[Rfam]
RNA sequence: AGCCUCGUUCUCAAGGAGAUCGGGCACUGUGGGUCAUGGCGCCCAGAAAUCGUUAAAGGGGCUAAAUUGAGACACAGGUUAUACGUCCGUCACAGCAAAUGUAUUGCAGUGGUGACAAUGAGACCUGUAUCGUCU
Numbered sequence: 001a002g003c004c005u006c007g008u009u010c011u012c013a014a015g016g017a018g019a020u021c022g023g024g025c026a027c028u029g030u031g032g033g034u035c036a037u038g039g040c041g042c043c044c045a046g047a048a049a050u051c052g053u054u055a056a057a058g059g060g061g062c063u064a065a066a067u068u069g070a071g072a073c074a075c076a077g078g079u080u081a082u083a084c085g086u087c088c089g090u091c092a093c094a095g096c097a098a099a100u101g102u103a104u105u106g107c108a109g110u111g112g113u114g115a116c117a118a119u120g121a122g123a124c125c126u127g128u129a130u131c132g133u134c135u
Base pairs, nucleotide, nucleotide: 002062003061004060006058008056022044023043024042025041027039074128075127076126077125078124088114089113090112091111092110093109
RNA: Small nucleolar RNA SNORA1
Organism: Propithecus coquereli